[Rfam]
RNA sequence: CGAGUUAACUACAGUUAAGGAACUCUGCAAAUUAACCCCGUACGUUAGCAAUAAGGGGUGCUCGCUGUAAAAGGUGAGCCGCAGUGAAUAGCGAGGGGGGACUGUUUAACAAAAACACAGCUCUAUGCUAAGUCGUAAGACGAUGUAUAUGGGGUGACACCUGCCCAAUGCUGUAAGGUUAAAGAAGAAUGUUAGCGUAAGCGAAGCUUUUGACUGAAGCCCCAGUGAAUGGCGGCCGUAACUAUAACGGUCCUAAGGUAGCGAAAUUCCUUGUCGGGUAAAUUCCGUCCCGCUUGAAUGGUGUAACCAUCUCUUGACUGUCUCAACUGUAGACUCG
Numbered sequence: 001c002g003a004g005u006u007a008a009c010u011a012c013a014g015u016u017a018a019g020g021a022a023c024u025c026u027g028c029a030a031a032u033u034a035a036c037c038c039c040g041u042a043c044g045u046u047a048g049c050a051a052u053a054a055g056g057g058g059u060g061c062u063c064g065c066u067g068u069a070a071a072a073g074g075u076g077a078g079c080c081g082c083a084g085u086g087a088a089u090a091g092c093g094a095g096g097g098g099g100g101a102c103u104g105u106u107u108a109a110c111a112a113a114a115a116c117a118c119a120g121c122u123c124u125a126u127g128c129u130a131a132g133u134c135g136u137a138a139g140a141c142g143a144u145g146u147a148u149a150u151g152g153g154g155u156g157a158c159a160c161c162u163g164c165c166c167a168a169u170g171c172u173g174u175a176a177g178g179u180u181a182a183a184g185a186a187g188a189a190u191g192u193u194a195g196c197g198u199a200a201g202c203g204a205a206g207c208u209u210u211u212g213a214c215u216g217a218a219g220c221c222c223c224a225g226u227g228a229a230u231g232g233c234g235g236c237c238g239u240a241a242c243u244a245u246a247a248c249g250g251u252c253c254u255a256a257g258g259u260a261g262c263g264a265a266a267u268u269c270c271u272u273g274u275c276g277g278g279u280a281a282a283u284u285c286c287g288u289c290c291c292g293c294u295u296g297a298a299u300g301g302u303g304u305a306a307c308c309a310u311c312u313c314u315u316g317a318c319u320g321u322c323u324c325a326a327c328u329g330u331a332g333a334c335u336c337g
Base pairs, nucleotide, nucleotide: 001337002336003335004334009332010331011330012329013328014327015326016325018323019322020321035059036058037057038056039055044049060079061078062077063076064075065074066071080084092316093315094314095313096312097311098310099308100307103117104116105115120155121154122153123152124151125150126149127148128145132141133140134139158303159302160301161300163233164232165231168230169229170226171225172224173223177221178220179219183215184214187211188210189209191207192206195202196201234252235251236250237249238248239247253257263290273289275287276286277285278284
The record is a 337-nucleotide part of an RNA from Ureaplasma urealyticum, which matches "Bacterial large subunit ribosomal RNA" in Rfam. Gene Ontology terms of the family: structural constituent of ribosome and ribosome. The base pairs follow the family's consensus structure, which is taken from published work. The sequence is in the family's curated seed alignment. Taxonomically the source falls in Ureaplasma urealyticum serovar 11 (Bacteria, Bacillati, Mycoplasmoidaceae, Ureaplasma).